Rfam assigns this 69-nucleotide RNA from Rhodamnia argentea to the family "Plastid-clpP 5UTR RNA". The source organism's lineage runs through Eukaryota, Streptophytina, malvids, Myrtoideae and Rhodamnia. From the family's description: Plastid clpP is a non-coding RNA (ncRNA) recognised in plastids. The literature on the family includes a 2023 paper in Plant Commun by Richter et al., "Retrograde signaling in plants: A critical review focusing on the GUN pathway and beyond". The base pairs follow the family's consensus structure, which was predicted with LocARNA.

[Rfam]
RNA sequence: AAAUAGGUUUGCAGGAAUAAAGAGAAGCAGUUUUAUUCUAUAUCUGAUAAGUACCAAUACGCAAUGGGG
Numbered sequence: 001a002a003a004u005a006g007g008u009u010u011g012c013a014g015g016a017a018u019a020a021a022g023a024g025a026a027g028c029a030g031u032u033u034u035a036u037u038c039u040a041u042a043u044c045u046g047a048u049a050a051g052u053a054c055c056a057a058u059a060c061g062c063a064a065u066g067g068g069g
Base pairs, nucleotide, nucleotide: 004021007018008017009016010015043068044067045066051060052059053058